[Rfam]
RNA sequence: UGAUCCUGCCUUUUAGGCAUCCUCUCCCAAACUUUCACAGCCCGGCCCCGUGCCGGGCUUUUUUUGUCUGCGCU
Dot-bracket structure: .......((((...))))....................((((((((.....))))))))...............
Makes More Granules Regulator RNA (mmgR): a 74-nucleotide RNA from Erythrobacter sp. NAP1. Rfam describes the family as follows. SuhB later renamed mmgR (makes more granules regulator) was a putative non-coding RNA found multiple times in the Agrobacterium tumefaciens genome and related alpha-proteobacteria. Pairs were carried over by alignment from the consensus structure. Rfam's curators put it in the seed alignment. Lineage of the source: Bacteria > Pseudomonadati > Sphingomonadales > Erythrobacteraceae > Erythrobacter. For this family Rfam cites "Evidence for a second class of S-adenosylmethionine riboswitches and other regulatory RNA motifs in alpha-proteobacteria" (Corbino et al., Genome Biol, 2005).